[Rfam]
About this RNA: Rfam assigns this 142-nucleotide RNA from Metabacillus sediminilitoris to the family "c-di-AMP riboswitch aptamer (ydaO/yuaA leader)". It scores 112 bits against the family's covariance model. Lineage of the source: Bacteria > Bacillati > Caryophanales > Bacillaceae > Metabacillus.

RNA sequence: CAUUCUUAUUCGCUGAGUCUAAAAAGAGCGGGGGAACCAAUUCUGUGACACUGUCACUUGGGGUGAAUCCUUUUGCAAAGGUAGGGCUACUUCCAUGGCCCGAAUCCGACAGCUAACCUCGUAAGCGUUAGGGAGAGGAUGU
Numbered sequence: 001c002a003u004u005c006u007u008a009u010u011c012g013c014u015g016a017g018u019c020u021a022a023a024a025a026g027a028g029c030g031g032g033g034g035a036a037c038c039a040a041u042u043c044u045g046u047g048a049c050a051c052u053g054u055c056a057c058u059u060g061g062g063g064u065g066a067a068u069c070c071u072u073u074u075g076c077a078a079a080g081g082u083a084g085g086g087c088u089a090c091u092u093c094c095a096u097g098g099c100c101c102g103a104a105u106c107c108g109a110c111a112g113c114u115a116a117c118c119u120c121g122u123a124a125g126c127g128u129u130a131g132g133g134a135g136a137g138g139a140u141g142u
Base pairs, nucleotide, nucleotide: 011127012126013125014124018027019026020025028122029121030120031119032118033117038060039059061107062106063105069081070080071079072078084101085100086099087098